[Rfam]
RNA sequence: GGUCAAGAGCGCCAGCGUCAAGCCCCGGCUCGCUGGCCGGCAACCCUCCUCUCGCGGCGGGGUGCCCCGGGUGACGACCUGGCCCCGCGCCGUCCGGCGUGCGGGCAAGCGCGGGGA
Numbered sequence: 001g002g003u004c005a006a007g008a009g010c011g012c013c014a015g016c017g018u019c020a021a022g023c024c025c026c027g028g029c030u031c032g033c034u035g036g037c038c039g040g041c042a043a044c045c046c047u048c049c050u051c052u053c054g055c056g057g058c059g060g061g062g063u064g065c066c067c068c069g070g071g072u073g074a075c076g077a078c079c080u081g082g083c084c085c086c087g088c089g090c091c092g093u094c095c096g097g098c099g100u101g102c103g104g105g106c107a108a109g110c111g112c113g114g115g116g117a
Stems, first nucleotide, its partner, number of pairs: 001079004009038001011037006021030002039066003044062003048057002082106004086101006

SAM (S-adenosyl methionine) riboswitch aptamer: a 117-nucleotide sequence from Krasilnikoviella flava. Rfam's curators write: SAM-IV is a mRNA element that regulates gene expression via direct sensing of S-adenosylmethionine (SAM or AdoMet). The literature on the family includes a 2008 paper in RNA by Weinberg et al., "The aptamer core of SAM-IV riboswitches mimics the ligand-binding site of SAM-I riboswitches". Lineage of the source: Bacteria > Bacillati > Actinomycetota > Actinomycetes > Krasilnikoviella.